[Rfam]
TPP riboswitch aptamer (THI element): a 95-nucleotide RNA from Isoptericola sp. CG 20/1183. About the family: Vitamin B(1) in its active form thiamin pyrophosphate (TPP) is an essential coenzyme that is synthesised by coupling of pyrimidine and thiazole moieties in bacteria. Taxonomically the source falls in Isoptericola (Bacteria, Actinomycetota, Actinomycetes, Micrococcales). The match comes from Rfam's covariance-model search (60 bits).
RNA sequence: CCUCACGACACGGGGUGCGCCCACCGGGAGCUGAGAUCACACCCGUCGAACCUGAUGCAGUCCGCACUGACGAAGGGAUGUCGCCCAUGCCGUCG
Numbered sequence: 001c002c003u004c005a006c007g008a009c010a011c012g013g014g015g016u017g018c019g020c021c022c023a024c025c026g027g028g029a030g031c032u033g034a035g036a037u038c039a040c041a042c043c044c045g046u047c048g049a050a051c052c053u054g055a056u057g058c059a060g061u062c063c064g065c066a067c068u069g070a071c072g073a074a075g076g077g078a079u080g081u082c083g084c085c086c087a088u089g090c091c092g093u094c095g
Stems, first nucleotide, its partner, number of pairs: 006083005011045004016039001017031002020028002051076003058069003